[Rfam]
RNA sequence: UUCUGAUCUGUCGGUUUGACUCCCUCCCGUAGGCCCUGGAACACCUUCCCCGGUCCCAGGUUCACGGAGGGGAAUCAAACCGACAGGCCAGGCCCUU
Numbered sequence: 001u002u003c004u005g006a007u008c009u010g011u012c013g014g015u016u017u018g019a020c021u022c023c024c025u026c027c028c029g030u031a032g033g034c035c036c037u038g039g040a041a042c043a044c045c046u047u048c049c050c051c052g053g054u055c056c057c058a059g060g061u062u063c064a065c066g067g068a069g070g071g072g073a074a075u076c077a078a079a080c081c082g083a084c085a086g087g088c089c090a091g092g093c094c095c096u097u
Base pairs, nucleotide, nucleotide: 010084011083012082013081014080015079016078018076019075021073022072023071024070025069027067028066029065030064032063033062035060036059037058038057039056041054042053